[Rfam]
Description
Rfam assigns this 75-nucleotide RNA from Macaca nemestrina to the family "mir-197 microRNA precursor family". The literature on the family includes a 2003 paper in RNA by Lagos-Quintana et al., "New microRNAs from mouse and human".

RNA sequence: GGCUGUGCCGGGUAGAGAGGGCAGUGGGAGGUAAGAGCUCUUCACCCUUCACCACCUUCUCCACCCGGCAUGGCC
Numbered sequence: 001g002g003c004u005g006u007g008c009c010g011g012g013u014a015g016a017g018a019g020g021g022c023a024g025u026g027g028g029a030g031g032u033a034a035g036a037g038c039u040c041u042u043c044a045c046c047c048u049u050c051a052c053c054a055c056c057u058u059c060u061c062c063a064c065c066c067g068g069c070a071u072g073g074c075c
Base pairs, nucleotide, nucleotide: 001075002074003073004072006070007069008068010066011065012064013063015061016060017059018058019057020056021055024052025051026050027049028048030046031045032044033042034041035040
Record summary:
Its family is annotated with miRNA-mediated post-transcriptional gene silencing and RISC complex in the Gene Ontology. NCBI's taxonomy places the organism under Eukaryota, Vertebrata, Amniota, Cercopithecoidea, Macaca.